[Rfam]
RNA sequence: GGCCGCCGUCUCUACAACGGAUCGUCCGGCACGUACCUGCCGGUGGAGGAAAUCAUG
Numbered sequence: 001g002g003c004c005g006c007c008g009u010c011u012c013u014a015c016a017a018c019g020g021a022u023c024g025u026c027c028g029g030c031a032c033g034u035a036c037c038u039g040c041c042g043g044u045g046g047a048g049g050a051a052a053u054c055a056u057g
Base pairs, nucleotide, nucleotide: 009049010048011047012046013045014044026043027042028041029040030039031038
RNA: msiK RNA